Shown here is an 80-nucleotide RNA sequence from Equus caballus, a member of the family "Small nucleolar RNA SNORD72".
Rfam's curators put it in the seed alignment.
For this family Rfam cites "RNomics: an experimental approach that identifies 201 candidates for novel, small, non-messenger RNAs in mouse" (Huttenhofer et al., EMBO J, 2001).
Rfam classes the family as a C/D-box small nucleolar RNA.
RNA sequence: AGCUUAUCUGUGAUGUUGUAAAGAUAAAUGUCUGAACAUAUGAAUUCGAUACUGAUUUCAGCAUUUAACUGAGAUAAGCU
Numbered sequence: 001a002g003c004u005u006a007u008c009u010g011u012g013a014u015g016u017u018g019u020a021a022a023g024a025u026a027a028a029u030g031u032c033u034g035a036a037c038a039u040a041u042g043a044a045u046u047c048g049a050u051a052c053u054g055a056u057u058u059c060a061g062c063a064u065u066u067a068a069c070u071g072a073g074a075u076a077a078g079c080u
Stems, first nucleotide, its partner, number of pairs: 002079007